[Rfam]
Selenocysteine transfer RNA: a 93-nucleotide RNA sequence from Clostridium liquoris. The family has 109 seed sequences and 4,211 matches in Rfam 15.1. Pairs were carried over by alignment from the consensus structure, which is taken from published work. Taxonomically the source falls in Clostridium (Bacteria, Bacillota, Eubacteriales, Clostridiaceae).
RNA sequence: GGGAGUAGAUGUGUACUGGUGUACUUACCAGUCUUCAAAACUGUGUUGUGGCGCUAAUAACGUCAUUGGUGGGUUCGAUUCCCACAUGCUCCC
Numbered sequence: 001g002g003g004a005g006u007a008g009a010u011g012u013g014u015a016c017u018g019g020u021g022u023a024c025u026u027a028c029c030a031g032u033c034u035u036c037a038a039a040a041c042u043g044u045g046u047u048g049u050g051g052c053g054c055u056a057a058u059a060a061c062g063u064c065a066u067u068g069g070u071g072g073g074u075u076c077g078a079u080u081c082c083c084a085c086a087u088g089c090u091c092c093c
Stems, first nucleotide, its partner, number of pairs: 001093007008085001011026001013024004027046002029043004048066005070084004
Dot-bracket structure: ((((((((..(.((((....)))).)((((((.......)))).)).(((((.........)))))...((((.......))))).)))))))